The record is a 73-nucleotide RNA from Mikania micrantha, which matches "Small nucleolar RNA snoR60" in Rfam.
Its family is annotated with RNA processing and nucleolus in the Gene Ontology.
RNA sequence: UAUCGUAUGAUGAGCCUACUUGAAUUUCCCUUCAGGACUUUCAGGAUGAUGCAAAAACUGAUGUUCUGAUGGU
Numbered sequence: 001u002a003u004c005g006u007a008u009g010a011u012g013a014g015c016c017u018a019c020u021u022g023a024a025u026u027u028c029c030c031u032u033c034a035g036g037a038c039u040u041u042c043a044g045g046a047u048g049a050u051g052c053a054a055a056a057a058c059u060g061a062u063g064u065u066c067u068g069a070u071g072g073u
Stems, first nucleotide, its partner, number of pairs: 002073004

On this family, see Barneche et al., J Biol Chem 2000: "Fibrillarin genes encode both a conserved nucleolar protein and a novel small nucleolar RNA involved in ribosomal RNA methylation in Arabidopsis thaliana". Rfam classes the family as a C/D-box small nucleolar RNA.